This 164-nucleotide RNA sequence from Lusitaniella coriacea belongs to the Rfam family "Ribosomal protein L10 leader". The family's RNA type in Rfam is cis-regulatory leader. On this family, see Zengel and Lindahl, Prog Nucleic Acid Res Mol Biol 1994: "Diverse mechanisms for regulating ribosomal protein synthesis in Escherichia coli". A search with the family's covariance model found it, with a score of 57 bits.
RNA sequence: AAAUAUUUAGUUCUUUUCCCAAAGACAGCAGGGGCAAUUUGCUUAAUCGCCUGCCGAGGGGGGUAAUAAAUAAUUUGGAUUUCAUCGUUUGAAUUGCGAUCUGCAUUCAACGCUCCAAAUACCCCAAACCCCGGCAAUUCUGUCGGGGUUUAAUCUUGGUUGUC
Numbered sequence: 001a002a003a004u005a006u007u008u009a010g011u012u013c014u015u016u017u018c019c020c021a022a023a024g025a026c027a028g029c030a031g032g033g034g035c036a037a038u039u040u041g042c043u044u045a046a047u048c049g050c051c052u053g054c055c056g057a058g059g060g061g062g063g064u065a066a067u068a069a070a071u072a073a074u075u076u077g078g079a080u081u082u083c084a085u086c087g088u089u090u091g092a093a094u095u096g097c098g099a100u101c102u103g104c105a106u107u108c109a110a111c112g113c114u115c116c117a118a119a120u121a122c123c124c125c126a127a128a129c130c131c132c133g134g135c136a137a138u139u140c141u142g143u144c145g146g147g148g149u150u151u152a153a154u155c156u157u158g159g160u161u162g163u164c
Stems, first nucleotide, its partner, number of pairs: 028054005034042003128149009